A member of the RNA family "Alphaproteobacteria transfer-messenger RNA" from Hyphomicrobium facile, 381 nucleotides long.
RNA sequence: ACGCUUUUUUUCGAAAGCAUUGCACCCUAUAUUCGUCGUGCUGGCUUCGGCCAGCUAUGGCGAUAAACGCGGUCGUAAUAAGCCGAUCGGACCCGGGGGCGGUACCCGGCGCCUCCACCACAUGCCACCUUUCACUGCUCGUCGAGCGGGCUGAGGCGGCAUCUGAUGGGGGCGAAAUAGGAUCGACGAAGGCGUAAAGGACUUAGCUUUUGCCCGGCAUGAUACCACCGUUAUCGGGUCUUACAGAAUAGUUGCCAAUGACAACUAUGCUGAGGCCGCUCUCGCUGCGUAAUGCAGUGCGAAUAGCCUGAACUUGAAGCCCUUAUCCGUAGCAGGAUAAGGCGCGGUCCGGAGGGCACCGGGCAACAGAAGCCCUCCACU
Numbered sequence: 001a002c003g004c005u006u007u008u009u010u011u012c013g014a015a016a017g018c019a020u021u022g023c024a025c026c027c028u029a030u031a032u033u034c035g036u037c038g039u040g041c042u043g044g045c046u047u048c049g050g051c052c053a054g055c056u057a058u059g060g061c062g063a064u065a066a067a068c069g070c071g072g073u074c075g076u077a078a079u080a081a082g083c084c085g086a087u088c089g090g091a092c093c094c095g096g097g098g099g100c101g102g103u104a105c106c107c108g109g110c111g112c113c114u115c116c117a118c119c120a121c122a123u124g125c126c127a128c129c130u131u132u133c134a135c136u137g138c139u140c141g142u143c144g145a146g147c148g149g150g151c152u153g154a155g156g157c158g159g160c161a162u163c164u165g166a167u168g169g170g171g172g173c174g175a176a177a178u179a180g181g182a183u184c185g186a187c188g189a190a191g192g193c194g195u196a197a198a199g200g201a202c203u204u205a206g207c208u209u210u211u212g213c214c215c216g217g218c219a220u221g222a223u224a225c226c227a228c229c230g231u232u233a234u235c236g237g238g239u240c241u242u243a244c245a246g247a248a249u250a251g252u253u254g255c256c257a258a259u260g261a262c263a264a265c266u267a268u269g270c271u272g273a274g275g276c277c278g279c280u281c282u283c284g285c286u287g288c289g290u291a292a293u294g295c296a297g298u299g300c301g302a303a304u305a306g307c308c309u310g311a312a313c314u315u316g317a318a319g320c321c322c323u324u325a326u327c328c329g330u331a332g333c334a335g336g337a338u339a340a341g342g343c344g345c346g347g348u349c350c351g352g353a354g355g356g357c358a359c360c361g362g363g364c365a366a367c368a369g370a371a372g373c374c375c376u377c378c379a380c381u
Stems, first nucleotide, its partner, number of pairs: 040055005059214005069207002071203004083192002087189003093109005110174007215230003221240002225237002345361004351378006
Lineage of the source: Bacteria > Pseudomonadati > Alphaproteobacteria > Hyphomicrobiales > Hyphomicrobium.